[Rfam]
RNA sequence: UGUCUGCAUUCGCUGAAUUCUGCUAGUGGCAGGAACGGGGGAACCAACCGAUUUCGCAAGCUGUAACAAGCUGUGUUAAUCAUGGGGUGAAUCGCAUGGUCCUUGAGGACAACGCGUAGGGCGACUCCAACGUCCGAAUCCGUCAGCUAACCUCGCAAGCGUUUAGGAGAGGCAAC
Numbered sequence: 001u002g003u004c005u006g007c008a009u010u011c012g013c014u015g016a017a018u019u020c021u022g023c024u025a026g027u028g029g030c031a032g033g034a035a036c037g038g039g040g041g042a043a044c045c046a047a048c049c050g051a052u053u054u055c056g057c058a059a060g061c062u063g064u065a066a067c068a069a070g071c072u073g074u075g076u077u078a079a080u081c082a083u084g085g086g087g088u089g090a091a092u093c094g095c096a097u098g099g100u101c102c103u104u105g106a107g108g109a110c111a112a113c114g115c116g117u118a119g120g121g122c123g124a125c126u127c128c129a130a131c132g133u134c135c136g137a138a139u140c141c142g143u144c145a146g147c148u149a150a151c152c153u154c155g156c157a158a159g160c161g162u163u164u165a166g167g168a169g170a171g172g173c174a175a176c
Base pairs, nucleotide, nucleotide: 011161012160013159014158018034019033020032021031022030036155037154038153039152040151045084046083085141086140087139093116094115095114119135120134121133122132